[Rfam]
RNA sequence: AUACAUCUAGAUCCAUACCCCUAAACUCCCUAGAUGUUUUUUGGAUAGCGUAAAUAAACGCUAUCCCUUUUUG
Numbered sequence: 001a002u003a004c005a006u007c008u009a010g011a012u013c014c015a016u017a018c019c020c021c022u023a024a025a026c027u028c029c030c031u032a033g034a035u036g037u038u039u040u041u042u043g044g045a046u047a048g049c050g051u052a053a054a055u056a057a058a059c060g061c062u063a064u065c066c067c068u069u070u071u072u073g
Stems, first nucleotide, its partner, number of pairs: 004036006043066009

Description
This 73-nucleotide RNA from Heyndrickxia shackletonii belongs to the Rfam family "Listeria sRNA sbrA". The organism belongs to Heyndrickxia, within Bacteria. For this family Rfam cites "The Listeria transcriptional landscape from saprophytism to virulence" (Toledo-Arana et al., Nature, 2009). By type it is a small RNA.